[Rfam]
RNA sequence: AGCCGUGCAGCGAGAACAAAGCGAACUAUUCUUUCGCCUUUUACUAAAGAAUACCGUGUUCUCUCUGCUCUUUAGCGGCAUACGCCUAUUUUUGGAAAGGGUUUUUGUAAACAGAAACC
Numbered sequence: 001a002g003c004c005g006u007g008c009a010g011c012g013a014g015a016a017c018a019a020a021g022c023g024a025a026c027u028a029u030u031c032u033u034u035c036g037c038c039u040u041u042u043a044c045u046a047a048a049g050a051a052u053a054c055c056g057u058g059u060u061c062u063c064u065c066u067g068c069u070c071u072u073u074a075g076c077g078g079c080a081u082a083c084g085c086c087u088a089u090u091u092u093u094g095g096a097a098a099g100g101g102u103u104u105u106u107g108u109a110a111a112c113a114g115a116a117a118c119c
Stems, first nucleotide, its partner, number of pairs: 002079004008067003012063007027053008100119005
Annotation: U5 spliceosomal RNA: a 119-nucleotide RNA from Eutrema salsugineum. Its family is annotated with spliceosomal tri-snRNP complex assembly and U5 snRNP in the Gene Ontology. U5 RNA is a component of both types of known spliceosome. It is annotated as a spliceosomal small nuclear RNA.